[Rfam]
RNA sequence: UAUAUGAUUGAUGAUAGCUUAAGAUAAUUAGGGUUUUUUAUUUUUUUUGAUAGAAGAAAGAUGCCUCUUCUUUCAGCAGCAAGAUCCAUUCUUGUUAGCUUUGUUCUGGAGGCAUAUAU
Numbered sequence: 001u002a003u004a005u006g007a008u009u010g011a012u013g014a015u016a017g018c019u020u021a022a023g024a025u026a027a028u029u030a031g032g033g034u035u036u037u038u039u040a041u042u043u044u045u046u047u048u049g050a051u052a053g054a055a056g057a058a059a060g061a062u063g064c065c066u067c068u069u070c071u072u073u074c075a076g077c078a079g080c081a082a083g084a085u086c087c088a089u090u091c092u093u094g095u096u097a098g099c100u101u102u103g104u105u106c107u108g109g110a111g112g113c114a115u116a117u118a119u
Stems, first nucleotide, its partner, number of pairs: 010042005017035001019033001062114007075100003078096007
Rfam assigns this 119-nucleotide RNA from Arabis nemorensis to the family "Brassica rapa small nucleolar RNA 775". Rfam 15.1 lists 25 matches to the family in 13 species. The family's RNA type in Rfam is H/ACA-box small nucleolar RNA. Its family is annotated with RNA processing and nucleolus in the Gene Ontology.